[Rfam]
The family of this 62-nucleotide RNA sequence from Panacibacter microcysteis is "DUF805 RNA". The base pairs follow the family's consensus structure, which is taken from published work.
RNA sequence: UGUAUGUGGAGCAGCUACCACUUAAACGGGCGCCACCGAAAAGCCAUAUGAGUAGGAGUUUA
Numbered sequence: 001u002g003u004a005u006g007u008g009g010a011g012c013a014g015c016u017a018c019c020a021c022u023u024a025a026a027c028g029g030g031c032g033c034c035a036c037c038g039a040a041a042a043g044c045c046a047u048a049u050g051a052g053u054a055g056g057a058g059u060u061u062a
Base pairs, nucleotide, nucleotide: 006021007020008019009018029045030044031043036056037055
It scores 59 bits against the family's covariance model.